Metazoan signal recognition particle RNA: a 298-nucleotide sequence from Thamnidium elegans. The family's consensus secondary structure is taken from published work. Lineage of the source: Eukaryota > Mucoromycota > Mucoromycotina > Mucorales > Thamnidium. It is annotated as a non-coding RNA gene.
[Rfam]
Nucleotides: 298
Base pairs, nucleotide, nucleotide: 001040002039003038004023005022006021007020008019009018010017011016028037029036030035043296045294046293047292048291049290050289052287054286056284057283058282060280063276064275065274066273067272068271069270070269076268077267078266079265080264081263082262083261084260085259086258087257092252093251094250096248101246102245103244105243106242107241108240109236110235111234112233113232114231115230117227119224120223121222122221123220124219125218126165127164128163129162131160132159133158135156136155137154138153139152140151142149143148166172173216174215175214176213177212182209184207185206186205191200192199193198
Number, partner (000 for none) and nucleotide at each position: 001040a002039c003038c004023g005022g006021a007020a008019a009018g010017u011016u012000u013000c014000a015000c016011a017010g018009c019008u020007u021006u022005c023004u024000g025000u026000a027000a028037g029036c030035a031000g032000g033000g034000u035030u036029g037028c038003g039002g040001u041000u042000u043296a044000u045294a046293a047292g048291g049290a050289g051000a052287u053000g054286a055000a056284u057283u058282c059000a060280u061000u062000c063276u064275c065274c066273g067272g068271u069270g070269g071000g072000a073000u074000u075000a076268c077267g078266g079265u080264a081263u082262a083261c084260u085259u086258g087257g088000u089000g090000a091000c092252u093251u094250u095000g096248u097000c098000g099000a100000a101246a102245a103244c104000a105243g106242u107241g108240u109236c110235u111234u112233a113232c114231a115230g116000a117227g118000u119224c120223u121222g122221g123220u124219g125218u126165c127164a128163a129162c130000a131160u132159u133158c134000g135156a136155g137154u138153c139152u140151a141000a142149g143148c144000g145000g146000a147000a148143g149142c150000a151140u152139a153138g154137g155136c156135u157000g158133g159132g160131a161000g162129g163128u164127u165126g166172u167000u168000c169000a170000a171000u172166a173216c174215u175214g176213g177212g178000g179000u180000a181000u182209u183000g184207c185206c186205c187000g188000a189000g190000g191200g192199u193198a194000g195000u196000a197000a198193u199192a200191c201000a202000g203000c204000a205186g206185g207184g208000a209182a210000a211000a212177c213176u214175c215174a216173g217000a218125g219124c220123a221122c222121u223120g224119g225000u226000u227117c228000g229000g230115c231114u232113g233112u234111g235110a236109g237000a238000u239000a240108g241107c242106a243105c244103g245102u246101u247000g248096g249000a250094g251093a252092a253000u254000c255000a256000u257087u258086c259085g260084a261083g262082u263081a264080u265079a266078u267077c268076g269070c270069c271068a272067u273066c274065g275064g276063a277000a278000a279000u280060g281000g282058g283057a284056a285000c286054u287052a288000c289050c290049u291048c292047u293046u294045u295000u296043u297000a298000u